Shown here is a 351-nucleotide sequence from Pseudocoprococcus catus, a member of the family "transfer-messenger RNA". The family's consensus secondary structure is taken from published work. It is annotated as a non-coding RNA gene. Gene Ontology term of the family: RNA catabolic process.
RNA sequence: GGGCUUGUACUGGUUUCGACGGGGAUGUUGAAGUUUGAGAAGCCAUCCGCAGACUCCGGAGCUGCGUUAAAAGCCGGAACCUAAAUAUAAAAGCAGACGAUAAGUUAGCUUUAGCUGCCUAAUUAGGCGCUUGUCGGCCCGGGACUGCUCACCAUUCCGGUUACCGGCAUCGAAGAAGGUGAGGACCUCCAGAGCUUAAGCUUUGCAGCUUUGGAAAAUUUAUGAAGCUACUGAUGCUGUAGGCCUGUCAUUAGGCAUAUGGCAGAGGGAAUGAAUGUAUAAUGACUGUGAUGGGAGAUGCUUGGAUGGAGAUAUCUUCGGACCGGGGUUCGACUCCCCGCAGGUCCACUA
Dot-bracket structure: (((((((............((((((((((...(((((((.(.((((((((((..[[[[[..))))).......]]]]]..................................(((..(.......)..)))((((((.((.(((...[[[[[[.))).))...))))))........]]]]]]....(((((((((..[[[[[[..)))))))))........]]]]]].((..((((((..(((.[[[[.[[)))..))))))..)).........]]...]]]]...)))))....).)))))))...))))))))))...(((((.......))))))))))))....